[Rfam]
RNA sequence: GGCUCUGGCUCCGUGUCUUCACUCCCGUGUUUGUCCGAGGAGGGAGGGAGGGACGGGGGCGGUGCU
Numbered sequence: 001g002g003c004u005c006u007g008g009c010u011c012c013g014u015g016u017c018u019u020c021a022c023u024c025c026c027g028u029g030u031u032u033g034u035c036c037g038a039g040g041a042g043g044g045a046g047g048g049a050g051g052g053a054c055g056g057g058g059g060c061g062g063u064g065c066u
Stems, first nucleotide, its partner, number of pairs: 001066003005062001007060001009058006016051005022046005
Rfam assigns this 66-nucleotide sequence from Mus musculus to the family "mir-149 microRNA precursor family".
The source organism's lineage runs through Eukaryota, Opisthokonta, Chordata, Amniota and Mus.
The family's consensus secondary structure was predicted with RNAalifold.